A member of the RNA family "SAM (S-adenosyl methionine) riboswitch aptamer" from Quadrisphaera granulorum, 113 nucleotides long. The base pairs follow the family's consensus structure, which is taken from published work. It scores 108 bits against the family's covariance model. The family is grouped with related families in Rfam's "SAM clan".

RNA sequence: CGUCACGAGUGCCAGCACCAAGCCCCGGCUCGCUGGCCGGCAACCCUGCUCCGCGCUGGGGUGCCCCGGGUGAUGACACGGUCCGUCCCGUCCGGGGCGGGCAAGUGCGGACC
Numbered sequence: 001c002g003u004c005a006c007g008a009g010u011g012c013c014a015g016c017a018c019c020a021a022g023c024c025c026c027g028g029c030u031c032g033c034u035g036g037c038c039g040g041c042a043a044c045c046c047u048g049c050u051c052c053g054c055g056c057u058g059g060g061g062u063g064c065c066c067c068g069g070g071u072g073a074u075g076a077c078a079c080g081g082u083c084c085g086u087c088c089c090g091u092c093c094g095g096g097g098c099g100g101g102c103a104a105g106u107g108c109g110g111a112c113c
Stems, first nucleotide, its partner, number of pairs: 002077003009038001011037006021030002039065003044061003048056002081102009